RNA sequence: AAUAUUACUGGGAAUGAGGUUCUCCCAGGAACGAGAUAGAAAUAGCUAAAUCUUUCGUUCAUAACCGCUUGAUUAUAAAGCUGAUGACUUCUGCAAAGCG
Numbered sequence: 001a002a003u004a005u006u007a008c009u010g011g012g013a014a015u016g017a018g019g020u021u022c023u024c025c026c027a028g029g030a031a032c033g034a035g036a037u038a039g040a041a042a043u044a045g046c047u048a049a050a051u052c053u054u055u056c057g058u059u060c061a062u063a064a065c066c067g068c069u070u071g072a073u074u075a076u077a078a079a080g081c082u083g084a085u086g087a088c089u090u091c092u093g094c095a096a097a098g099c100g
Base pairs, nucleotide, nucleotide: 010025011024012023016091017090018089019088020087021086067081068080069079070078
RNA: Fluoride riboswitch aptamer (crcB RNA motif)